[Rfam]
RNA sequence: CCUUUGGAGUAACAUACCAAACUGAAGUAGUCUUAUGAUAAAACAGGUUACGAUGAAUAAGGAA
Numbered sequence: 001c002c003u004u005u006g007g008a009g010u011a012a013c014a015u016a017c018c019a020a021a022c023u024g025a026a027g028u029a030g031u032c033u034u035a036u037g038a039u040a041a042a043a044c045a046g047g048u049u050a051c052g053a054u055g056a057a058u059a060a061g062g063a064a
Stems, first nucleotide, its partner, number of pairs: 001062004009051005022046003030039003
Shown here is a 64-nucleotide RNA sequence, a member of the family "RAGATH-18 RNA". The sequence is in the family's curated seed alignment. The base pairs follow the family's consensus structure, which is taken from published work.